[Rfam]
RNA sequence: CUUCGAUAAAGGCAAACCGGUUGAAAGGCCGGGACGCAAAGCCACGGGUCUAAGGUUUGGAAAAACUAUGAUCGCCGGGUUACCGAA
Numbered sequence: 001c002u003u004c005g006a007u008a009a010a011g012g013c014a015a016a017c018c019g020g021u022u023g024a025a026a027g028g029c030c031g032g033g034a035c036g037c038a039a040a041g042c043c044a045c046g047g048g049u050c051u052a053a054g055g056u057u058u059g060g061a062a063a064a065a066c067u068a069u070g071a072u073c074g075c076c077g078g079g080u081u082a083c084c085g086a087a
Base pairs, nucleotide, nucleotide: 012037013036017032018031019030020029021028022027040081041080042079043078045077046076047075048072049071050070055066056065057064058063